A member of the RNA family "Bacterial small subunit ribosomal RNA" from Ornithinimicrobium ciconiae, 587 nucleotides of a longer RNA. The match comes from Rfam's covariance-model search (1597 bits). The literature on the family includes a 2001 paper in Science by Yusupov et al., "Crystal structure of the ribosome at 5.5 A resolution". The organism belongs to Ornithinimicrobium, within Bacteria.
RNA sequence: UGACGGGGGCCCGCACAAGCGGCGGAGCAUGCGGAUUAAUUCGAUGCAACGCGAAGAACCUUACCAAGGCUUGACAUAUACCGGAAACAUUCAGAGAUGGGUGCCCCGCAAGGUCGGUAUACAGGUGGUGCAUGGUUGUCGUCAGCUCGUGUCGUGAGAUGUUGGGUUAAGUCCCGCAACGAGCGCAACCCUCGUUCUAUGUUGCCAGCACGUGAUGGUGGGGACUCAUAGGAGACUGCCGGGGUCAACUCGGAGGAAGGUGGGGAUGACGUCAAAUCAUCAUGCCCCUUACGUCUUGGGCUUCACGCAUGCUACAAUGGCCGGUACAAAGGGCUGCGAAACCGCGAGGUGGAGCGAAUCCCAAAAAACCGGUCUCAGUUCGGAUUGGGGUCUGCAACUCGACCCCAUGAAGUCGGAGUCGCUAGUAAUCGCAGAUCAGCAACGCUGCGGUGAAUACGUUCCCGGGCCUUGUACACACCGCCCGUCAAGUCACGAAAGUCGGUAACACCCGAAGCCGGUGGCCCAACCCCUUGUGGGAGGGAGCCGUCGAAGGUGGGACUGGUGAUUGGGACUAAGUCGUAACAAGG
Numbered sequence: 001u002g003a004c005g006g007g008g009g010c011c012c013g014c015a016c017a018a019g020c021g022g023c024g025g026a027g028c029a030u031g032c033g034g035a036u037u038a039a040u041u042c043g044a045u046g047c048a049a050c051g052c053g054a055a056g057a058a059c060c061u062u063a064c065c066a067a068g069g070c071u072u073g074a075c076a077u078a079u080a081c082c083g084g085a086a087a088c089a090u091u092c093a094g095a096g097a098u099g100g101g102u103g104c105c106c107c108g109c110a111a112g113g114u115c116g117g118u119a120u121a122c123a124g125g126u127g128g129u130g131c132a133u134g135g136u137u138g139u140c141g142u143c144a145g146c147u148c149g150u151g152u153c154g155u156g157a158g159a160u161g162u163u164g165g166g167u168u169a170a171g172u173c174c175c176g177c178a179a180c181g182a183g184c185g186c187a188a189c190c191c192u193c194g195u196u197c198u199a200u201g202u203u204g205c206c207a208g209c210a211c212g213u214g215a216u217g218g219u220g221g222g223g224a225c226u227c228a229u230a231g232g233a234g235a236c237u238g239c240c241g242g243g244g245u246c247a248a249c250u251c252g253g254a255g256g257a258a259g260g261u262g263g264g265g266a267u268g269a270c271g272u273c274a275a276a277u278c279a280u281c282a283u284g285c286c287c288c289u290u291a292c293g294u295c296u297u298g299g300g301c302u303u304c305a306c307g308c309a310u311g312c313u314a315c316a317a318u319g320g321c322c323g324g325u326a327c328a329a330a331g332g333g334c335u336g337c338g339a340a341a342c343c344g345c346g347a348g349g350u351g352g353a354g355c356g357a358a359u360c361c362c363a364a365a366a367a368a369c370c371g372g373u374c375u376c377a378g379u380u381c382g383g384a385u386u387g388g389g390g391u392c393u394g395c396a397a398c399u400c401g402a403c404c405c406c407a408u409g410a411a412g413u414c415g416g417a418g419u420c421g422c423u424a425g426u427a428a429u430c431g432c433a434g435a436u437c438a439g440c441a442a443c444g445c446u447g448c449g450g451u452g453a454a455u456a457c458g459u460u461c462c463c464g465g466g467c468c469u470u471g472u473a474c475a476c477a478c479c480g481c482c483c484g485u486c487a488a489g490u491c492a493c494g495a496a497a498g499u500c501g502g503u504a505a506c507a508c509c510c511g512a513a514g515c516c517g518g519u520g521g522c523c524c525a526a527c528c529c530c531u532u533g534u535g536g537g538a539g540g541g542a543g544c545c546g547u548c549g550a551a552g553g554u555g556g557g558a559c560u561g562g563u564g565a566u567u568g569g570g571a572c573u574a575a576g577u578c579g580u581a582a583c584a585a586g587g
Stems, first nucleotide, its partner, number of pairs: 001475002003472003007469007015459002019422005024315001026313008034304002040055004064299007077121002080118005088103006106113002124288002127286004133282002135277003138273001140271002145184006151160003163176004190265004195233007205222002209220003236256002239253005319374007331362003336355002341350003381412001386407007428451007478586001480583001483579002488573004493568003498563006506555004514548001516546004522541003527537002
Dot-bracket structure: (((((.(((((((.((..((((((.((((((((((....((((........))))........(((((((......((.(((((...((((((....))))))..((....))))))).))..((.((((..((((((.((...(((((((((....)))..((((......))))..)))))).....((((.(((((((...((..(((......)))))....)))))))..((.(((((.....))))).)).....))))....)).).)))...))))))))....)))))))...)).)))))))).)...(((((((.....(((..((...(((....)))...))....))).....)))))))......(....(((((((........)))))))....).....))))).....(((((((..........)))))))......))...)))))))))).))..(.(..((...((((.(((..((((((..((((....(.((((..(((..((.......)).))).)))).)...))))..))))))..))).))))....))...)..).